[Rfam]
RNA sequence: CAUGGACUAAUGAUGGUUUGUUUUGAAACCCGCGUCGUGGAGAAAACAGACCUGAUGUGUUUGGCGUG
Numbered sequence: 001c002a003u004g005g006a007c008u009a010a011u012g013a014u015g016g017u018u019u020g021u022u023u024u025g026a027a028a029c030c031c032g033c034g035u036c037g038u039g040g041a042g043a044a045a046a047c048a049g050a051c052c053u054g055a056u057g058u059g060u061u062u063g064g065c066g067u068g
Stems, first nucleotide, its partner, number of pairs: 001068004015052010030040003
Rfam assigns this 68-nucleotide RNA from Danionella cerebrum to the family "Selenocysteine insertion sequence 1". The base pairs follow the family's consensus structure, which is taken from published work. The source organism's lineage runs through Eukaryota, Bilateria, Deuterostomia, Gnathostomata and Danionella. Gene Ontology term of the family: selenocysteine incorporation.